Source information:
The record is a 107-nucleotide sequence from Thermopolyspora flexuosa, which matches "Glycine riboswitch aptamer" in Rfam. This family represents the bacterial glycine riboswitch. The organism belongs to Thermopolyspora, within Bacteria. It scores 41 bits against the family's covariance model.

[Rfam]
RNA sequence: GCGACUCUGGAAAGCGGGUGCGCCCGGCCGGGCACACCUCACCGAAGGUGCAAAUCCCCGACCAUCCGGGGAUGAAGCUCUCAGGUGCCGAUGACAGAGGGGGAACG
Number, nucleotide and partner (000 for none) at each position: 001g000002c102003g000004a000005c099006u098007c097008u096009g095010g000011a000012a000013a000014g000015c000016g039017g038018g037019u036020g000021c000022g000023c000024c000025c000026g000027g000028c000029c000030g000031g000032g000033c000034a000035c000036a019037c018038c017039u016040c000041a086042c085043c084044g082045a081046a000047g000048g080049u000050g078051c000052a000053a000054a073055u072056c071057c070058c069059c068060g067061a000062c000063c000064a000065u000066c000067c060068g059069g058070g057071g056072a055073u054074g000075a000076a000077g000078c050079u000080c048081u045082c044083a000084g043085g042086u041087g000088c000089c000090g000091a000092u000093g000094a000095c009096a008097g007098a006099g005100g000101g000102g002103g000104a000105a000106c000107g000